The record is a 97-nucleotide RNA from Salvia splendens, which matches "Small nucleolar RNA snoR31/Z110/Z27" in Rfam. The family's RNA type in Rfam is C/D-box small nucleolar RNA. Rfam links the family to the GO terms RNA processing and nucleolus. Lineage of the source: Eukaryota > lamiids > Nepetoideae > Salvia subgen. Calosphace > core Calosphace. A reference for the family is Barneche et al. (2001), "Identification of 66 box C/D snoRNAs in Arabidopsis thaliana: extensive gene duplications generated multiple isoforms predicting new ribosomal RNA 2'-O-methylation sites", J Mol Biol. A search with the family's covariance model found it, with a score of 45 bits. This family contains several related snoRNAs including R31, Z27 and Z110.
RNA sequence: AUCGUCAAGUGAUGAAUACAUUUACAUAUCUUAGGAUACCUUUGGACACAGUCUAUUUCUAGCUGUGGAUGAAAAUCAACUUUAUUCUGAUGAUGAA
Numbered sequence: 001a002u003c004g005u006c007a008a009g010u011g012a013u014g015a016a017u018a019c020a021u022u023u024a025c026a027u028a029u030c031u032u033a034g035g036a037u038a039c040c041u042u043u044g045g046a047c048a049c050a051g052u053c054u055a056u057u058u059c060u061a062g063c064u065g066u067g068g069a070u071g072a073a074a075a076u077c078a079a080c081u082u083u084a085u086u087c088u089g090a091u092g093a094u095g096a097a
Stems, first nucleotide, its partner, number of pairs: 002096006045049001